[Rfam]
RNA sequence: UGCCCAAAUUUGAAGUAGAGUAGAUCAGUAGUAUCAGCUAACCCUACUAAACUACUCUACUUCGAGCUCGGGCCC
Numbered sequence: 001u002g003c004c005c006a007a008a009u010u011u012g013a014a015g016u017a018g019a020g021u022a023g024a025u026c027a028g029u030a031g032u033a034u035c036a037g038c039u040a041a042c043c044c045u046a047c048u049a050a051a052c053u054a055c056u057c058u059a060c061u062u063c064g065a066g067c068u069c070g071g072g073c074c075c
Base pairs, nucleotide, nucleotide: 002073003072004071005070007068009066011064012063013062014061015060016059017058018057019056020055021054022053023052025050027048028047029046030045034041